[Rfam]
RNA sequence: CGCGGAGGACGACCUCCCCCGUUGCGGGCACCACGACCAGGACGGCCUGG
Numbered sequence: 001c002g003c004g005g006a007g008g009a010c011g012a013c014c015u016c017c018c019c020c021g022u023u024g025c026g027g028g029c030a031c032c033a034c035g036a037c038c039a040g041g042a043c044g045g046c047c048u049g050g
Stems, first nucleotide, its partner, number of pairs: 001021002004018001005016004037050005
Description
Shown here is a 50-nucleotide RNA from Novilysobacter arseniciresistens, a member of the family "Guanidine-II riboswitch aptamer (mini-ykkC)". Simpler in structure and has fewer highly conserved nucleotide positions than the ykkC-yxkD leader. The family's consensus secondary structure is taken from published work.